[Rfam]
RNA sequence: CGGAGCGGCUCGGGUGAUCGCCGGCGCACCGUCGAAAGACGGGCACGCGGGAGGAAAGUCCGAGCUCCACAGGGCAGGAUGCCGGCUAACGGCCGGUGGGGGCGACCCCGAGGACAGUGCAACAGAGAGCAGACCGCCGCCCCCUCUCGCGAGAGAGGCAUCGCGGCAAGGGUGAAACGGUGAGGUAAGAGCUCACCGGGCCGCUGGUGACAGCGGCUGCACGGCAAACCCCAUCCGGAGCAAGACCGAAUAGGGGAGCGCUGUGUCUCCGGGGCACCGCAAGGCUCCACGGAGGCACGAGAGGACGGCCCGUCCGAAGCUCCCGGGUGUGUCGCUGGAGGCACGCGGCAACGCGCGUCCUAGAGGAAUGAUCGCCACUCGCUCCGCGGCGACGCGGGGAGAGAACAGAACUCGGCUUACGAGCCGGUCCGACCC
Dot-bracket structure: ((((.(((((.((((((((.((.(((..(.............)..))).))....[[[.[[[[[((((...[[[[.((((((((((.....)))))(((((....)))).)((...((((.............(((((((......................)))))..)).......((((((.......))))))(((((((((....)))))))).)...))..)))))))))))))...(((.......((((((...........................................((((.]]]]))))...))))))......)))......(((.((((....)))).)))..........)))))))..................................]]]]]]]].).))))).))))....
A member of the RNA family "Bacterial RNase P class A" from Sandaracinus amylolyticus, 435 nucleotides long.
A search with the family's covariance model found it, with a score of 256 bits.
The family's RNA type in Rfam is ribozyme.